The record is a 90-nucleotide sequence from Phyllobacterium zundukense, which matches "Repression of heat shock gene expression (ROSE) element" in Rfam. This family represents a 5' UTR cis-regulatory element found in heat shock mRNAs and is known as the ROSE (repression of heat shock gene expression) element. The ROSE element is a negative regulator of heat shock gene expression. The secondary structure is thought to be regulated by temperature. This regulation blocks access to the ribosome binding site under normal conditions. During heat shock however, the structure changes freeing the ribosome binding site and allowing expression to occur. A search with the family's covariance model found it, with a score of 62 bits. The literature on the family includes a 2001 paper in Nucleic Acids Res by Nocker et al., "A mRNA-based thermosensor controls expression of rhizobial heat shock genes". The source organism's lineage runs through Bacteria, Pseudomonadati, Pseudomonadota, Hyphomicrobiales and Phyllobacterium. By type it is an RNA thermoregulator. The base pairs follow the family's consensus structure, which is taken from published work.
[Rfam]
RNA sequence: UCGGUCGCAUGGUUGGGCCGGCAGUCAGGGAGCGCCAAGCUUCUUGGCGCCUCAUUUCUAUGUUGCUCAAGGAGGACUUAGCUAUGAGAA
Numbered sequence: 001u002c003g004g005u006c007g008c009a010u011g012g013u014u015g016g017g018c019c020g021g022c023a024g025u026c027a028g029g030g031a032g033c034g035c036c037a038a039g040c041u042u043c044u045u046g047g048c049g050c051c052u053c054a055u056u057u058c059u060a061u062g063u064u065g066c067u068c069a070a071g072g073a074g075g076a077c078u079u080a081g082c083u084a085u086g087a088g089a090a
Base pairs, nucleotide, nucleotide: 001021002020003019004018005017006016008015009014029050033049034048035047036046037045038044051088052087053086054085055084058081059080060079062077063076064075066074067073068072